Shown here is a 114-nucleotide RNA sequence from Capsicum baccatum, a member of the family "Small nucleolar RNA Z152/R70/R12/".
Rfam classes the family as a C/D-box small nucleolar RNA.
The organism belongs to Capsicum, within Eukaryota.
For this family Rfam cites "Identification of 66 box C/D snoRNAs in Arabidopsis thaliana: extensive gene duplications generated multiple isoforms predicting new ribosomal RNA 2'-O-methylation sites" (Barneche et al., J Mol Biol, 2001).
[Rfam]
RNA sequence: AAUGCUAUGAUGAGGAUGAAUACCAUAUGGUGUUUGAGGGAAGUGGAAGAGGGUUAUUCAUAGCUUUCUCCGUCAGCCUAUUUAAUUAAACUUCUUCUCCUUCCACUUAGCAUU
Number, nucleotide and partner (000 for none) at each position: 001a114002a113003u112004g111005c110006u109007a108008u000009g000010a000011u000012g000013a000014g000015g000016a000017u000018g000019a000020a000021u000022a000023c000024c000025a000026u000027a000028u000029g000030g000031u000032g000033u000034u000035u000036g000037a000038g000039g000040g000041a000042a000043g000044u000045g000046g000047a000048a000049g000050a000051g000052g000053g000054u000055u000056a000057u000058u000059c000060a000061u000062a000063g000064c000065u000066u000067u000068c000069u000070c000071c000072g000073u000074c000075a000076g000077c000078c000079u000080a000081u000082u000083u000084a000085a000086u000087u000088a000089a000090a000091c000092u000093u000094c000095u000096u000097c000098u000099c000100c000101u000102u000103c000104c000105a000106c000107u000108u007109a006110g005111c004112a003113u002114u001